[Rfam]
RNA sequence: GGAGAGGUGGCCGAGUGGUCGAAGGCGCACGCCUGGAAAGUGUGUAGGCAGGGAACUGUCUCCAGGGUUCGAAUCCCUGUCUCUCCG
Numbered sequence: 001g002g003a004g005a006g007g008u009g010g011c012c013g014a015g016u017g018g019u020c021g022a023a024g025g026c027g028c029a030c031g032c033c034u035g036g037a038a039a040g041u042g043u044g045u046a047g048g049c050a051g052g053g054a055a056c057u058g059u060c061u062c063c064a065g066g067g068u069u070c071g072a073a074u075c076c077c078u079g080u081c082u083c084u085c086c087g
Stems, first nucleotide, its partner, number of pairs: 001086007010026003028044005063079005
Record summary
The record is an 87-nucleotide RNA from Donghicola tyrosinivorans, which matches "tRNA" in Rfam. By type it is a transfer RNA. The literature on the family includes a 1993 paper in Trends Biochem Sci by Hou, "The tertiary structure of tRNA and the development of the genetic code".